[Rfam]
RNA sequence: UUUUCAUCAAGAGUUGGCUGAGGGACUGGCCCAAUGAAGCCGCGGCAACCAUCCAAACGGGAACGGUGCCAAUUCCUCCAGGACACAGGUCCUGAUAGAUGAGAG
Numbered sequence: 001u002u003u004u005c006a007u008c009a010a011g012a013g014u015u016g017g018c019u020g021a022g023g024g025a026c027u028g029g030c031c032c033a034a035u036g037a038a039g040c041c042g043c044g045g046c047a048a049c050c051a052u053c054c055a056a057a058c059g060g061g062a063a064c065g066g067u068g069c070c071a072a073u074u075c076c077u078c079c080a081g082g083a084c085a086c087a088g089g090u091c092c093u094g095a096u097a098g099a100u101g102a103g104a105g
Stems, first nucleotide, its partner, number of pairs: 001105008013043001015042004022032003028076002044070004049066002052061003074097001079094006
The family of this 105-nucleotide RNA from Propionispora sp. 2/2-37 is "SAM riboswitch aptamer (S box leader)". Pairs were carried over by alignment from the consensus structure, which is taken from published work.